[Rfam]
Notes
A member of the RNA family "Burkholderia RNA 11" from Diaphorobacter ruginosibacter, 122 nucleotides long. From the family's description: Co-purified with Hfq, expression confirmed by Northern blot. Predicted target marZ. Overlaps coding sequence. A search with the family's covariance model found it, with a score of 85 bits. The family's consensus secondary structure was predicted with RNAfold. NCBI's taxonomy places the organism under Bacteria, Pseudomonadati, Betaproteobacteria, Comamonadaceae, Diaphorobacter. Rfam links the family to the GO term protein binding.
RNA sequence: GCAAUCUCCGCCUUGCGCACGGCAACAUCGUGGUGUUCCGCUCGCUGCUCGGCAUCAGCUGGAUGUGGUUCUUCGGCGCGGUGUUCCUGAGCCAGUUCCCGAGCUUCGCCAAGGAGGUGCUU
Numbered sequence: 001g002c003a004a005u006c007u008c009c010g011c012c013u014u015g016c017g018c019a020c021g022g023c024a025a026c027a028u029c030g031u032g033g034u035g036u037u038c039c040g041c042u043c044g045c046u047g048c049u050c051g052g053c054a055u056c057a058g059c060u061g062g063a064u065g066u067g068g069u070u071c072u073u074c075g076g077c078g079c080g081g082u083g084u085u086c087c088u089g090a091g092c093c094a095g096u097u098c099c100c101g102a103g104c105u106u107c108g109c110c111a112a113g114g115a116g117g118u119g120c121u122u
Base pairs, nucleotide, nucleotide: 010049012047014044015043017041018040021037022036023035024034026032051121052120053119054118055117059113060112062110063105067099068098071095072094077089078088080087081086